[Rfam]
RNA sequence: UUGUGUGUGAGGAGUAAGUGUAAAAGAGAAAGGUUUUGGGGUCGAAACACGGAAAGACUCCCAGAACCUUUUUCUU
Number, nucleotide and partner (000 for none) at each position: 001u000002u000003g000004u000005g000006u000007g000008u000009g000010a000011g000012g000013a000014g000015u000016a000017a000018g000019u000020g000021u000022a000023a000024a000025a000026g000027a000028g000029a071030a070031a069032g068033g067034u000035u000036u064037u063038g062039g061040g060041g058042u057043c056044g000045a000046a000047a000048c000049a000050c000051g000052g000053a000054a000055a000056g043057a042058c041059u000060c040061c039062c038063a037064g036065a000066a000067c033068c032069u031070u030071u029072u000073u000074c000075u000076u000
Shown here is a 76-nucleotide RNA sequence from Xenococcus sp. PCC 7305, a member of the family "Cyano-1 RNA".